[Rfam]
Rfam assigns this 145-nucleotide sequence from Dorcoceras hygrometricum to the family "Small nucleolar RNA snoR138". The source organism's lineage runs through Eukaryota, Viridiplantae, lamiids, Trichosporeae and Dorcoceras. The base pairs follow the family's consensus structure, which was predicted with mfold.
RNA sequence: AAUGCCUCUUGAAUAACUAGAUUGGUUGACUAUAAGGAUUUACCAUUCUGGUUCAGACAGGGGCACAAAUCAACAUGAAUCUGUUUGAGGGCGAGGAACUAUAUCAUGAUUUCCAGUUCUUCUCUUAGUUUUGCUUCAGACAUUU
Dot-bracket structure: ..(((((.(.....(((((((..(((...............)))..)))))))......))))))..........((((.(.(((.....(..((..(........)..))..)))).((......))....).)))).......